[Rfam]
RNA: Vault RNA
RNA sequence: GGGCUGGCUUUAGCUCCGCGGUUCCUUCGACAGUAUUCUAACAACCUCUUUGCGGAGGCAGAGCCAUUCAAGACCCACUGGCACUCUCCAUUAUUUAA
Number, nucleotide and partner (000 for none) at each position: 001g000002g000003g092004c000005u090006g089007g088008c000009u000010u000011u000012a000013g082014c081015u080016c000017c000018g078019c000020g076021g075022u000023u000024c000025c000026u072027u071028c000029g069030a068031c000032a000033g000034u000035a000036u000037u000038c000039u000040a000041a000042c000043a000044a000045c000046c000047u000048c000049u000050u000051u000052g000053c000054g000055g000056a000057g000058g000059c000060a000061g000062a000063g000064c000065c000066a000067u000068u030069c029070a000071a027072g026073a000074c000075c021076c020077a000078c018079u000080g015081g014082c013083a000084c000085u000086c000087u000088c007089c006090a005091u000092u003093a000094u000095u000096u000097a000098a000